[Rfam]
RNA sequence: UGGUGAAUAUUCUUGCUGUUCUGAUUUUGUAAAAAUCAGGACAGGCUAAACAUUUGCUAUGUUAAGACCAUGCCUGUGUCCCCAGACCUAGUUCUUUCCCUAGAUCUGGUUUUAUCAAUGCUGGUGAUAGAC
Numbered sequence: 001u002g003g004u005g006a007a008u009a010u011u012c013u014u015g016c017u018g019u020u021c022u023g024a025u026u027u028u029g030u031a032a033a034a035a036u037c038a039g040g041a042c043a044g045g046c047u048a049a050a051c052a053u054u055u056g057c058u059a060u061g062u063u064a065a066g067a068c069c070a071u072g073c074c075u076g077u078g079u080c081c082c083c084a085g086a087c088c089u090a091g092u093u094c095u096u097u098c099c100c101u102a103g104a105u106c107u108g109g110u111u112u113u114a115u116c117a118a119u120g121c122u123g124g125u126g127a128u129a130g131a132c
Base pairs, nucleotide, nucleotide: 003057004056005055016044017043018042019041020040021039022038023037024036025035026034067125068124069123070122072121073120082109083108084107085106086105088103089102090101091100
Dot-bracket structure: ..(((..........(((((((((((.......)))))))))))..........))).........((((.((........(((((.((((........)))).)))))..........)))))).......